[Rfam]
The family of this 85-nucleotide RNA sequence from Eolophus roseicapilla is "Small nucleolar RNA SNORD121A". The base pairs follow the family's consensus structure, which was predicted with WAR. By type it is a C/D-box small nucleolar RNA. The source organism's lineage runs through Eukaryota, Theropoda, Telluraves, Australaves and Eolophus. A search with the family's covariance model found it, with a score of 49 bits.
RNA sequence: GUCCAAAAUACAGUGAUUUUACCUUUUCCAAGCACAUGUCUGAUUGCUCUAUGUGGAAAAUGGCUGUUGCCAAGUGAUUAUGGGG
Numbered sequence: 001g002u003c004c005a006a007a008a009u010a011c012a013g014u015g016a017u018u019u020u021a022c023c024u025u026u027u028c029c030a031a032g033c034a035c036a037u038g039u040c041u042g043a044u045u046g047c048u049c050u051a052u053g054u055g056g057a058a059a060a061u062g063g064c065u066g067u068u069g070c071c072a073a074g075u076g077a078u079u080a081u082g083g084g085g
Base pairs, nucleotide, nucleotide: 002084003083004082005081008078009077010075011074